[Rfam]
RNA sequence: AGAAGCAGAAGGGGGCCACAGCAGAAAUGUUCACGUUGUGAUCCCUGUCAGAUAAUACCUGGUAAUACCUUCAAUUUCUUCA
Numbered sequence: 001a002g003a004a005g006c007a008g009a010a011g012g013g014g015g016c017c018a019c020a021g022c023a024g025a026a027a028u029g030u031u032c033a034c035g036u037u038g039u040g041a042u043c044c045c046u047g048u049c050a051g052a053u054a055a056u057a058c059c060u061g062g063u064a065a066u067a068c069c070u071u072c073a074a075u076u077u078c079u080u081c082a
Base pairs, nucleotide, nucleotide: 012045013044014043015042017040021081023079024078025077026076027039028038029037050070051069053067054066
RNA: Mammalian CPEB3 ribozyme
Organism: Alligator sinensis